[Rfam]
RNA sequence: CCGCGUUCUCCCGGGGGCGGCAUUCGAGCCGCUGAGAUUGAGGUAGUCCUCUGACCGGCCGAACCUGAUCCGGGUCAUGCCGGCGAAGGGAUGAGUACGCUUUCGGUCC
Numbered sequence: 001c002c003g004c005g006u007u008c009u010c011c012c013g014g015g016g017g018c019g020g021c022a023u024u025c026g027a028g029c030c031g032c033u034g035a036g037a038u039u040g041a042g043g044u045a046g047u048c049c050u051c052u053g054a055c056c057g058g059c060c061g062a063a064c065c066u067g068a069u070c071c072g073g074g075u076c077a078u079g080c081c082g083g084c085g086a087a088g089g090g091a092u093g094a095g096u097a098c099g100c101u102u103u104c105g106g107u108c109c
Base pairs, nucleotide, nucleotide: 006097008095009094010093011058012057013056014055016052017032018031019030020029021028040051041050042049043048064089065088066087070083071082072081073080
RNA: TPP riboswitch aptamer (THI element)
Organism: Brevundimonas goettingensis